[Rfam]
RNA sequence: CUCUGGAAAGCAGCAGGCCGAGGCCUGCUCACCGACGGGGCAAGGCGGCGCGAGUCGCGCGAAUCUCUCAGGUCAUCGACAGAG
Dot-bracket structure: (((((......((((..........)))).(((((..(((....((............))....))))).)))......)))))
Numbered sequence: 001c002u003c004u005g006g007a008a009a010g011c012a013g014c015a016g017g018c019c020g021a022g023g024c025c026u027g028c029u030c031a032c033c034g035a036c037g038g039g040g041c042a043a044g045g046c047g048g049c050g051c052g053a054g055u056c057g058c059g060c061g062a063a064u065c066u067c068u069c070a071g072g073u074c075a076u077c078g079a080c081a082g083a084g
Stems, first nucleotide, its partner, number of pairs: 001084005012029004031073003034069002038067003045060002